[Rfam]
RNA sequence: AUAUAUGUCAAGUUUGUGCGUGAAUCUCACCCCAUGAUUACGGACGGAUCUCGAGGAAUAUCGAUGGUGUUAGAUUCACGCACAAACUCCUCAUAUGUCU
Numbered sequence: 001a002u003a004u005a006u007g008u009c010a011a012g013u014u015u016g017u018g019c020g021u022g023a024a025u026c027u028c029a030c031c032c033c034a035u036g037a038u039u040a041c042g043g044a045c046g047g048a049u050c051u052c053g054a055g056g057a058a059u060a061u062c063g064a065u066g067g068u069g070u071u072a073g074a075u076u077c078a079c080g081c082a083c084a085a086a087c088u089c090c091u092c093a094u095a096u097g098u099c100u
Stems, first nucleotide, its partner, number of pairs: 001098003005094003011088016029070002032067002
RNA: MIR403 microRNA precursor family